[Rfam]
RNA sequence: UGACGGAAGGGCACCACAAGGAGUGGAGCUUGCGGCUUAAUUUGACUCAACACGGGAAAACUUACCAGGUCCGAACUUACUGAGGUAAGACAAGAUUAAUAGCUCUUUCUCAAAAUUAAGGGUAGUGGUGCAUGGCCGUUCUUAGUUCGUGGAAUGAUUUGUCUGGUUAAUUCCGAUAACGAACGUGACUCAAUCAGAUUAACUAGAACGCAGUCAGCCGUCGCCGGUGCUAGCCGUCCGCGGGUGGCCCGAUGACCUGACAGUAUGCCGAGCCGGCGGGCGAGCGGCCUCACGGUCGUUCGCUACGCGGUUCGGUCCCCCCUGCUUAAUGGGACAAUUUGUGUUUAGCAAAGUGAGGUUGAGCGAUAACAGGUCCGUGAUGCCCUUAGAUGUUCUGGGCUGCACGCGUGCUACAAUGUGAGCAGCAGCGUGUUUAACCUAUUCCGAGAGGAACGGGAAAUCACUGAAAUGCUCAUUUAGUAGGGAUUAUGGAUUGCAAUGGUCCAUAUGAACCUGGAAUUCCUAGUAAGUGCUGGUCAUUAGCUAGCGUUGAUUACGUCCCUGCCCUUUGUACACA
Numbered sequence: 001u002g003a004c005g006g007a008a009g010g011g012c013a014c015c016a017c018a019a020g021g022a023g024u025g026g027a028g029c030u031u032g033c034g035g036c037u038u039a040a041u042u043u044g045a046c047u048c049a050a051c052a053c054g055g056g057a058a059a060a061c062u063u064a065c066c067a068g069g070u071c072c073g074a075a076c077u078u079a080c081u082g083a084g085g086u087a088a089g090a091c092a093a094g095a096u097u098a099a100u101a102g103c104u105c106u107u108u109c110u111c112a113a114a115a116u117u118a119a120g121g122g123u124a125g126u127g128g129u130g131c132a133u134g135g136c137c138g139u140u141c142u143u144a145g146u147u148c149g150u151g152g153a154a155u156g157a158u159u160u161g162u163c164u165g166g167u168u169a170a171u172u173c174c175g176a177u178a179a180c181g182a183a184c185g186u187g188a189c190u191c192a193a194u195c196a197g198a199u200u201a202a203c204u205a206g207a208a209c210g211c212a213g214u215c216a217g218c219c220g221u222c223g224c225c226g227g228u229g230c231u232a233g234c235c236g237u238c239c240g241c242g243g244g245u246g247g248c249c250c251g252a253u254g255a256c257c258u259g260a261c262a263g264u265a266u267g268c269c270g271a272g273c274c275g276g277c278g279g280g281c282g283a284g285c286g287g288c289c290u291c292a293c294g295g296u297c298g299u300u301c302g303c304u305a306c307g308c309g310g311u312u313c314g315g316u317c318c319c320c321c322c323u324g325c326u327u328a329a330u331g332g333g334a335c336a337a338u339u340u341g342u343g344u345u346u347a348g349c350a351a352a353g354u355g356a357g358g359u360u361g362a363g364c365g366a367u368a369a370c371a372g373g374u375c376c377g378u379g380a381u382g383c384c385c386u387u388a389g390a391u392g393u394u395c396u397g398g399g400c401u402g403c404a405c406g407c408g409u410g411c412u413a414c415a416a417u418g419u420g421a422g423c424a425g426c427a428g429c430g431u432g433u434u435u436a437a438c439c440u441a442u443u444c445c446g447a448g449a450g451g452a453a454c455g456g457g458a459a460a461u462c463a464c465u466g467a468a469a470u471g472c473u474c475a476u477u478u479a480g481u482a483g484g485g486a487u488u489a490u491g492g493a494u495u496g497c498a499a500u501g502g503u504c505c506a507u508a509u510g511a512a513c514c515u516g517g518a519a520u521u522c523c524u525a526g527u528a529a530g531u532g533c534u535g536g537u538c539a540u541u542a543g544c545u546a547g548c549g550u551u552g553a554u555u556a557c558g559u560c561c562c563u564g565c566c567c568u569u570u571g572u573a574c575a576c577a
Stems, first nucleotide, its partner, number of pairs: 001575002003572003007569007016559002020523005025414001027412003031408004035403002041056004065398005071392001076120004089109002092106001094105002124386002127384004133380001134378001135374003138370003145184006151160003164175003190362004195332001197330001199329004205323002335355002338352005418476007430464003438457002442453004483513001488508007529551008

Rfam assigns this 577-nucleotide part of an RNA from Anopheles darlingi to the family "Eukaryotic small subunit ribosomal RNA". A reference for the family is Cannone et al. (2002), "The comparative RNA web (CRW) site: an online database of comparative sequence and structure information for ribosomal, intron, and other RNAs", BMC Bioinformatics. NCBI's taxonomy places the organism under Eukaryota, Metazoa, Mandibulata, Culicomorpha, argyritarsis series. The base pairs follow the family's consensus structure, which is taken from published work.